Record summary
The record is a 591-nucleotide RNA from Puccinia graminis, which matches "Nuclear RNase P" in Rfam. Taxonomically the source falls in Puccinia graminis (Eukaryota, Opisthokonta, Pucciniomycotina, Pucciniales).
[Rfam]
RNA sequence: GCCAGACCGAAGACCGCGGCUCGUCGUUCAUACUUUCAGGUCCCACACAUGCUGUGGUCGUCCUUGUAUCACCUACUUUGCGACUGGGUUAAGGUCCGAGUCUUUCAAUCCCCUCAGGAGCUUCUCUCCUGGCCUGUCCAUCGGUCGGACUUUUUAUAAACUCUCAAGGGGUUUGCUCUUGUAAACACUCGAGCAGGGCCCAUCAUCAGAAAUCGCUCUCGUCUCUUACUGGACAGCCGAACGAAUCCGGUCGAGACGGCUCAUUCUGGGAUCGUCUCGCAUCUUUCAUAUCUGACUAGUAGUUAACACAGAUCGGGCCGAAGACAUCGAGUCACCUCGACGAGGACCUUUCGCGUCUACGAGUCUCAGAUUAAUAUUUUUGCAGGCAUCCUGGAUGAGCUACCAGCUCUGACUACGAUUCUUCAGUUUACUCUAGGGGACGAGAUUGGGAACGGUGGGUGGGGGUAGCGCUGGCUGUCUGUUGCCCCUUGGGCCUGGCAGUUGUCGAUUUAGUGCAAUCCGCGGUGAGCGAGUCCUCGAAGGUCUUCUUCUUCGCUCGCUCAACUCAAUUCGGACUACUCUUGGCCUGGC
Numbered sequence: 001g002c003c004a005g006a007c008c009g010a011a012g013a014c015c016g017c018g019g020c021u022c023g024u025c026g027u028u029c030a031u032a033c034u035u036u037c038a039g040g041u042c043c044c045a046c047a048c049a050u051g052c053u054g055u056g057g058u059c060g061u062c063c064u065u066g067u068a069u070c071a072c073c074u075a076c077u078u079u080g081c082g083a084c085u086g087g088g089u090u091a092a093g094g095u096c097c098g099a100g101u102c103u104u105u106c107a108a109u110c111c112c113c114u115c116a117g118g119a120g121c122u123u124c125u126c127u128c129c130u131g132g133c134c135u136g137u138c139c140a141u142c143g144g145u146c147g148g149a150c151u152u153u154u155u156a157u158a159a160a161c162u163c164u165c166a167a168g169g170g171g172u173u174u175g176c177u178c179u180u181g182u183a184a185a186c187a188c189u190c191g192a193g194c195a196g197g198g199c200c201c202a203u204c205a206u207c208a209g210a211a212a213u214c215g216c217u218c219u220c221g222u223c224u225c226u227u228a229c230u231g232g233a234c235a236g237c238c239g240a241a242c243g244a245a246u247c248c249g250g251u252c253g254a255g256a257c258g259g260c261u262c263a264u265u266c267u268g269g270g271a272u273c274g275u276c277u278c279g280c281a282u283c284u285u286u287c288a289u290a291u292c293u294g295a296c297u298a299g300u301a302g303u304u305a306a307c308a309c310a311g312a313u314c315g316g317g318c319c320g321a322a323g324a325c326a327u328c329g330a331g332u333c334a335c336c337u338c339g340a341c342g343a344g345g346a347c348c349u350u351u352c353g354c355g356u357c358u359a360c361g362a363g364u365c366u367c368a369g370a371u372u373a374a375u376a377u378u379u380u381u382g383c384a385g386g387c388a389u390c391c392u393g394g395a396u397g398a399g400c401u402a403c404c405a406g407c408u409c410u411g412a413c414u415a416c417g418a419u420u421c422u423u424c425a426g427u428u429u430a431c432u433c434u435a436g437g438g439g440a441c442g443a444g445a446u447u448g449g450g451a452a453c454g455g456u457g458g459g460u461g462g463g464g465g466u467a468g469c470g471c472u473g474g475c476u477g478u479c480u481g482u483u484g485c486c487c488c489u490u491g492g493g494c495c496u497g498g499c500a501g502u503u504g505u506c507g508a509u510u511u512a513g514u515g516c517a518a519u520c521c522g523c524g525g526u527g528a529g530c531g532a533g534u535c536c537u538c539g540a541a542g543g544u545c546u547u548c549u550u551c552u553u554c555g556c557u558c559g560c561u562c563a564a565c566u567c568a569a570u571u572c573g574g575a576c577u578a579c580u581c582u583u584g585g586c587c588u589g590g591c
Base pairs, nucleotide, nucleotide: 001591002590003589004588008584009583010582013526014525015524016523017522018521019520039085040084041083042082054072055071056070057069058068059066096574097573098572099571100570110464111463112462113461159173160172161171162170163169174195175194176193177192178191198460199459200458201457202456203455204454217445218444219443220442221441222440223439224438225437226436227435228434527562528561529560530559531558532557533556
The family's RNA type in Rfam is ribozyme.